[Rfam]
RNA sequence: CAUAUUGCGCCGGCGGCAAAAGUCCCUACAUUCAUCCCUGCCGGGCAACCGGAUAUGGCGCUAAACGGGCGUAUGGAAUAGGCAGAGUGGACCCGGGGGCAGUACCCGGCGCCUCCACCAGUUUCCGGGAGCGGUGCCAAGGGCUUCGAUGGAGCCGGCGCCGCCCCGCCGACGGGGGCGAACCAGGAUCGACACCUGCAGUAAAGAUGCGAUCGGCGCCCGGCAUGGUACCGCCGUUAUCGGGCCAAAAUCAUAGUUGCCAACGACAACUAUGCUGAGGCUCGUCUCGCCGCGUAAUGCGGUCGGAUGAACCGACUCUAAAGUCCUAGGCGUUCAGCGCGUCUAGGCGGGGUUUGGGGCGCACCUGGCAACAGAAGCGCCCCGCCU
Dot-bracket structure: ........................................((((....))))....(((((......(.(((((........(((.(((...(((((.......)))))(((((((.........................................................)))))))............))))))........))))).)..)))))((((.[[[..[[)))).....]].]]]......................................................................................................[[[[..((((((.]]]]...........))))))....
RNA: Alphaproteobacteria transfer-messenger RNA